[Rfam]
RNA: Molybdenum/Tungsten riboswitch aptamer (Moco RNA motif)
Organism: Peptococcaceae bacterium CEB3
RNA sequence: GAAUAGAGUUUACUCCGAGCCGGUUUCACCUAAAGGGAAUUCCAUGGUAACCGGCCAGGGCUUAUAGCCCUCAGGGUAUGUCUGGAAACGGAUAUGCCUUCACGUUUGAAAAGGAGGUGGUUAGUUCAUGGC
Numbered sequence: 001g002a003a004u005a006g007a008g009u010u011u012a013c014u015c016c017g018a019g020c021c022g023g024u025u026u027c028a029c030c031u032a033a034a035g036g037g038a039a040u041u042c043c044a045u046g047g048u049a050a051c052c053g054g055c056c057a058g059g060g061c062u063u064a065u066a067g068c069c070c071u072c073a074g075g076g077u078a079u080g081u082c083u084g085g086a087a088a089c090g091g092a093u094a095u096g097c098c099u100u101c102a103c104g105u106u107u108g109a110a111a112a113g114g115a116g117g118u119g120g121u122u123a124g125u126u127c128a129u130g131g132c
Base pairs, nucleotide, nucleotide: 003126013116014115015114016113019055020054021053022052023051024050025049028048029047030046035042036041057071058070059069060068061067074099075098076097077096078095079094080093081092082091083090084089100109101108